[Rfam]
This 65-nucleotide sequence from Polaromonas sp. belongs to the Rfam family "Betaproteobacteria toxic small RNA". The base pairs follow the family's consensus structure, which was predicted with WAR. A reference for the family is Kimelman et al. (2012), "A vast collection of microbial genes that are toxic to bacteria", Genome Res. The source organism's lineage runs through Bacteria, Pseudomonadota, Betaproteobacteria, Comamonadaceae and Polaromonas. About the family: Overexpression in amino aid rich medium attenuates growth, suggesting role in repressing amino acid intake and metabolism.
RNA sequence: UGUCUCCUCCACCUCCUCAAAGGGUGGAUUUACAGGCCCAAGUCGCAGGACUUGGGCCUUUUUUC
Numbered sequence: 001u002g003u004c005u006c007c008u009c010c011a012c013c014u015c016c017u018c019a020a021a022g023g024g025u026g027g028a029u030u031u032a033c034a035g036g037c038c039c040a041a042g043u044c045g046c047a048g049g050a051c052u053u054g055g056g057c058c059u060u061u062u063u064u065c
Stems, first nucleotide, its partner, number of pairs: 008028006035058008